[Rfam]
RNA: U2 spliceosomal RNA
RNA sequence: AUCAAGUGUAGUAUCUGUUUUUAUCAAUUUAAUAUCUGAUAUGUGGGUCAAUGGUUCACACGAUAUUAAAUUUAUUUCUUGAGGGGGAUAGUUCACCACAGUAGCUUGCUAUUGGAUCUCUCAAGCGUCGCCAAUGCGUUGCACUAUAACAUUGGCCUGGCGCACCCCAC
Numbered sequence: 001a002u003c004a005a006g007u008g009u010a011g012u013a014u015c016u017g018u019u020u021u022u023a024u025c026a027a028u029u030u031a032a033u034a035u036c037u038g039a040u041a042u043g044u045g046g047g048u049c050a051a052u053g054g055u056u057c058a059c060a061c062g063a064u065a066u067u068a069a070a071u072u073u074a075u076u077u078c079u080u081g082a083g084g085g086g087g088a089u090a091g092u093u094c095a096c097c098a099c100a101g102u103a104g105c106u107u108g109c110u111a112u113u114g115g116a117u118c119u120c121u122c123a124a125g126c127g128u129c130g131c132c133a134a135u136g137c138g139u140u141g142c143a144c145u146a147u148a149a150c151a152u153u154g155g156c157c158u159g160g161c162g163c164a165c166c167c168c169a170c
Base pairs, nucleotide, nucleotide: 022041023040024039025038026037043059044058045057046056047055048054049053087122088121090119091118093116094115101112102111103110104109125163126162127161128160129159130158132154133153134152135151136150